[Rfam]
Nucleotides: 105
Stems, first nucleotide, its partner, number of pairs: 003076001005074008015064002017093005047060004082100005
Number, partner (000 for none) and nucleotide at each position: 001000u002000a003076u004000c005074c006073c007072c008071c009070g010069c011068g012067u013000g014000a015064c016063u017093g018092g019091c020090g021089a022000u023000u024000a025000c026000g027000g028000c029000a030000u031000g032000c033000c034000c035000g036000g037000c038000a039000u040000g041000c042000c043000c044000g045000a046000g047060g048059u049058g050057g051000a052000c053000u054000g055000a056000c057050c058049c059048a060047c061000c062000g063016g064015g065000a066000a067012g068011c069010g070009c071008g072007g073006g074005g075000c076003g077000c078000a079000u080000u081000u082100u083099u084098g085097c086096c087000g088000u089021u090020c091019g092018c093017c094000u095000g096086g097085g098084c099083a100082g101000c102000c103000g104000u105000g

ZMP/ZTP riboswitch aptamer (pfl RNA motif): a 105-nucleotide RNA from Pandoraea thiooxydans. Lineage of the source: Bacteria > Pseudomonadati > Pseudomonadota > Betaproteobacteria > Pandoraea. Its family is annotated with regulation of purine nucleotide biosynthetic process and one-carbon metabolic process in the Gene Ontology.